Annotation:
Shown here is a 71-nucleotide RNA sequence from Xenopus laevis, a member of the family "Small nucleolar RNA SNORD73". A search with the family's covariance model found it, with a score of 50 bits. Rfam links the family to the GO terms nucleolus and RNA processing. By type it is a C/D-box small nucleolar RNA.
[Rfam]
RNA sequence: AACAUAUGAUGACACUGUUUCGGUCCCAUAUGAGUGUCUGUGAUUAUUGCCAUGAGAUCAAUACUGAUGUU
Numbered sequence: 001a002a003c004a005u006a007u008g009a010u011g012a013c014a015c016u017g018u019u020u021c022g023g024u025c026c027c028a029u030a031u032g033a034g035u036g037u038c039u040g041u042g043a044u045u046a047u048u049g050c051c052a053u054g055a056g057a058u059c060a061a062u063a064c065u066g067a068u069g070u071u
Stems, first nucleotide, its partner, number of pairs: 001071004

Description
Lineage of the source: Eukaryota > Metazoa > Bilateria > Amphibia > Xenopus.